[Rfam]
The family of this 98-nucleotide sequence from Rhododendron simsii is "mir-166 microRNA precursor family". Pairs were carried over by alignment from the consensus structure, which was predicted with PFOLD. It scores 64 bits against the family's covariance model. A reference for the family is Reinhart et al. (2002), "MicroRNAs in plants", Genes Dev.
RNA sequence: UUUGUGGGGGAUGUUGGCUGGCUCGAUGCACUCACAAGAGAAGAUCAAAUUGCAUCUUCAACAGUGAAGGAAUCGGACCAGGCUUCAUUCCUCUCAAA
Numbered sequence: 001u002u003u004g005u006g007g008g009g010g011a012u013g014u015u016g017g018c019u020g021g022c023u024c025g026a027u028g029c030a031c032u033c034a035c036a037a038g039a040g041a042a043g044a045u046c047a048a049a050u051u052g053c054a055u056c057u058u059c060a061a062c063a064g065u066g067a068a069g070g071a072a073u074c075g076g077a078c079c080a081g082g083c084u085u086c087a088u089u090c091c092u093c094u095c096a097a098a
Base pairs, nucleotide, nucleotide: 001098002097003096004095006093007092008091009090010089011088012087013086016083018081019080020079021078024075025074026073